[Rfam]
RNA sequence: GUUCACCUGUGUGUGGAUAGUGUUCAACACCAAGGACAGGCAUUUUACAUGUGUGUGGAUGGUGUUCAGCACCAAGGACAGACAUUUUACAU
Numbered sequence: 001g002u003u004c005a006c007c008u009g010u011g012u013g014u015g016g017a018u019a020g021u022g023u024u025c026a027a028c029a030c031c032a033a034g035g036a037c038a039g040g041c042a043u044u045u046u047a048c049a050u051g052u053g054u055g056u057g058g059a060u061g062g063u064g065u066u067c068a069g070c071a072c073c074a075a076g077g078a079c080a081g082a083c084a085u086u087u088u089a090c091a092u
Stems, first nucleotide, its partner, number of pairs: 007081004018074001020072005026066007034054001036052003040048001042046001
mir-2060 microRNA precursor family: a 92-nucleotide sequence from Branchiostoma belcheri. The base pairs follow the family's consensus structure, which was predicted with RNAalifold. The family has 7 seed sequences and 3,696 matches in Rfam 15.1.